Rfam assigns this 62-nucleotide sequence from Hipposideros armiger to the family "U7 small nuclear RNA". The family's consensus secondary structure was predicted with PFOLD. On this family, see Marz et al., Genomics Proteomics Bioinformatics 2007: "U7 snRNAs: a computational survey".
[Rfam]
RNA sequence: CAUAUUUUUAGCUCUUUUUGAAUUUGUCUAGUAGGUCUUCCGGUUUGUACCAGAAGGCCCCC
Numbered sequence: 001c002a003u004a005u006u007u008u009u010a011g012c013u014c015u016u017u018u019u020g021a022a023u024u025u026g027u028c029u030a031g032u033a034g035g036u037c038u039u040c041c042g043g044u045u046u047g048u049a050c051c052a053g054a055a056g057g058c059c060c061c062c
Base pairs, nucleotide, nucleotide: 034059035058036057037056038055039054040053042051043050044049
Dot-bracket structure: .................................(((((((.(((....))).)))))))...